Rfam assigns this 122-nucleotide RNA sequence from Cotesia congregata to the family "U5 spliceosomal RNA". Pairs were carried over by alignment from the consensus structure, which is taken from published work. Rfam describes the family as follows. U5 RNA is a component of both types of known spliceosome. The precise function of this molecule is unknown, though it is known that the 5' loop is required for splice site selection and p220 binding, and that both the 3' stem-loop and the Sm site are important for Sm protein binding and cap methylation. NCBI's taxonomy places the organism under Eukaryota, Protostomia, Ecdysozoa, Dicondylia, Cotesia. Rfam 15.1 lists 28,527 matches to the family in 2,489 species. The family's RNA type in Rfam is spliceosomal small nuclear RNA.

RNA sequence: UUACUCUGGUUUCCCUUCAGAAACACGCAUAAAUCUUUCGCCUUUUACUAAAGAUUUCCGUAGAGGGGAACAUCUGAUGAGUCUAAAUGACUAUUUUUUGUAGUACCCGGCGCAAGCUGGGU
Numbered sequence: 001u002u003a004c005u006c007u008g009g010u011u012u013c014c015c016u017u018c019a020g021a022a023a024c025a026c027g028c029a030u031a032a033a034u035c036u037u038u039c040g041c042c043u044u045u046u047a048c049u050a051a052a053g054a055u056u057u058c059c060g061u062a063g064a065g066g067g068g069a070a071c072a073u074c075u076g077a078u079g080a081g082u083c084u085a086a087a088u089g090a091c092u093a094u095u096u097u098u099u100g101u102a103g104u105a106c107c108c109g110g111c112g113c114a115a116g117c118u119g120g121g122u
Base pairs, nucleotide, nucleotide: 003082004081005080006079009071010070011069012068013067014066015065016064017063019061031057032056033055034054035053036052037051038050105122106121107120108119109118110117
Dot-bracket structure: ..((((..(((((((((.(...........((((((((...........))))))))...).))))))))).......))))......................((((((......))))))